[Rfam]
RNA: SAM riboswitch aptamer (S box leader)
RNA sequence: UUCUUAUCAAGAGCGGCUGAGGGACUGGCCCUAUGAAGCCCGGCAACCUGGAUGUAAUCCAACGGUGCCAAUUCCAGCAGGUAUUACCUGAAAGAUAAGAA
Numbered sequence: 001u002u003c004u005u006a007u008c009a010a011g012a013g014c015g016g017c018u019g020a021g022g023g024a025c026u027g028g029c030c031c032u033a034u035g036a037a038g039c040c041c042g043g044c045a046a047c048c049u050g051g052a053u054g055u056a057a058u059c060c061a062a063c064g065g066u067g068c069c070a071a072u073u074c075c076a077g078c079a080g081g082u083a084u085u086a087c088c089u090g091a092a093a094g095a096u097a098a099g100a101a
Stems, first nucleotide, its partner, number of pairs: 001101008013041001015040003021031003025077004042069004047065002049061004073093001078090005